RtT RNA: a 125-nucleotide sequence from Erwinia mallotivora. The match comes from Rfam's covariance-model search (83 bits). The family's RNA type in Rfam is cis-regulatory element. Lineage of the source: Bacteria > Pseudomonadota > Gammaproteobacteria > Erwiniaceae > Erwinia. Rfam links the family to the GO term cellular response to amino acid starvation. Rfam describes the family as follows. This family represents a bacterial cis-regulatory element known as RtT RNA. The exact function of RtT is unknown although it is thought that it may be involved in changing the cellular response in relation to amino acid starvation.

RNA sequence: GCUUUUAUAAAAUCGUGCAGGGUUCGAACCUGCCGCAGUUCGAGUCGAACGCAGUGAGACAGCGUUGCCAGCGGCAACGACCCGUAGGGCGAGGCGUAAGCCGAGUCAUCCUGCACGACCCACCA
Number, nucleotide and partner (000 for none) at each position: 001g000002c000003u000004u000005u000006u000007a000008u000009a000010a000011a000012a000013u000014c000015g116016u115017g114018c113019a112020g111021g110022g000023u108024u000025c000026g000027a000028a000029c000030c000031u000032g000033c089034c088035g000036c000037a000038g000039u086040u000041c084042g083043a000044g000045u000046c056047g055048a000049a000050c000051g000052c000053a000054g000055u047056g046057a000058g000059a000060c000061a000062g000063c079064g078065u077066u076067g075068c074069c000070a000071g000072c000073g000074g068075c067076a066077a065078c064079g063080a000081c000082c000083c042084g041085u000086a039087g000088g034089g033090c000091g000092a000093g000094g000095c000096g000097u000098a000099a000100g000101c000102c000103g000104a000105g000106u000107c000108a023109u000110c021111c020112u019113g018114c017115a016116c015117g000118a000119c000120c000121c000122a000123c000124c000125a000